[Rfam]
RNA sequence: UAUGGGUCCCUUCGCAGCGCGAAGCAACGAACCCCGUCAGAUCCGGAAGGAAGCAGCGGUAGUUGUGGGUGCGGGUGCCGAAGUAAGGCUGGUAUAA
Numbered sequence: 001u002a003u004g005g006g007u008c009c010c011u012u013c014g015c016a017g018c019g020c021g022a023a024g025c026a027a028c029g030a031a032c033c034c035c036g037u038c039a040g041a042u043c044c045g046g047a048a049g050g051a052a053g054c055a056g057c058g059g060u061a062g063u064u065g066u067g068g069g070u071g072c073g074g075g076u077g078c079c080g081a082a083g084u085a086a087g088g089c090u091g092g093u094a095u096a097a
Base pairs, nucleotide, nucleotide: 005090006089007088008087010083011082012081013080014079015075018073019072020071021070024066025065026064027063028062034059035058036057037056042051043050044049